This 88-nucleotide sequence belongs to the Rfam family "Vault RNA".
It is one of the family's seed sequences.
Pairs were carried over by alignment from the consensus structure, which is taken from published work.
The literature on the family includes a 2009 paper in Mol Biol Evol by Stadler et al., "Evolution of Vault RNAs".
[Rfam]
RNA sequence: GGCUGGCUUUAGCUCAGCGGUUACUUCGCGUGUCAUCAAACCACCUCUCUGGGUUGUUCGAGACCCGCGGGCGCUCUCCAGCCCUCUU
Numbered sequence: 001g002g003c004u005g006g007c008u009u010u011a012g013c014u015c016a017g018c019g020g021u022u023a024c025u026u027c028g029c030g031u032g033u034c035a036u037c038a039a040a041c042c043a044c045c046u047c048u049c050u051g052g053g054u055u056g057u058u059c060g061a062g063a064c065c066c067g068c069g070g071g072c073g074c075u076c077u078c079c080a081g082c083c084c085u086c087u088u
Stems, first nucleotide, its partner, number of pairs: 001083006012072004017068004025062004